Pseudomon-1/ErsA RNA: a 113-nucleotide RNA sequence from Pseudomonas rhizosphaerae. Pairs were carried over by alignment from the consensus structure, which is taken from published work. A reference for the family is Ferrara et al. (2015), "Post-transcriptional regulation of the virulence-associated enzyme AlgC by the sigma(22) -dependent small RNA ErsA of Pseudomonas aeruginosa", Environ Microbiol. Rfam's curators write: Functions to regulate the AlgC enzyme. Based on this information, the new name ErsA for the RNA was adopted. Rfam classes the family as a small RNA.
[Rfam]
RNA sequence: AUGCUCCUAUGUUGUGUUAAGUGUUGGCAGAUAUCCGGACCCUCAGCGGUUCGGACCUUGAGCCCCAGACUUCCCCCUCCCCAUACGAAGUCCGGGGUUUUUUUUGCCUGGAU
Numbered sequence: 001a002u003g004c005u006c007c008u009a010u011g012u013u014g015u016g017u018u019a020a021g022u023g024u025u026g027g028c029a030g031a032u033a034u035c036c037g038g039a040c041c042c043u044c045a046g047c048g049g050u051u052c053g054g055a056c057c058u059u060g061a062g063c064c065c066c067a068g069a070c071u072u073c074c075c076c077c078u079c080c081c082c083a084u085a086c087g088a089a090g091u092c093c094g095g096g097g098u099u100u101u102u103u104u105u106g107c108c109u110g111g112a113u
Stems, first nucleotide, its partner, number of pairs: 034055008060101003063097004068092006